[Rfam]
Annotation:
A member of the RNA family "Mu-gpT-DE RNA", 53 nucleotides long. The family's RNA type in Rfam is small RNA. The sequence is in the family's curated seed alignment. The base pairs follow the family's consensus structure, which is taken from published work.
RNA sequence: CCCUGACAGCCGCAUAGUGCGACUGACAUAACCCGUGACAGGAGAUACAUAUG
Dot-bracket structure: .((((.(((.(.........).))).............))))...........
Numbered sequence: 001c002c003c004u005g006a007c008a009g010c011c012g013c014a015u016a017g018u019g020c021g022a023c024u025g026a027c028a029u030a031a032c033c034c035g036u037g038a039c040a041g042g043a044g045a046u047a048c049a050u051a052u053g
Stems, first nucleotide, its partner, number of pairs: 002042004007025003011021001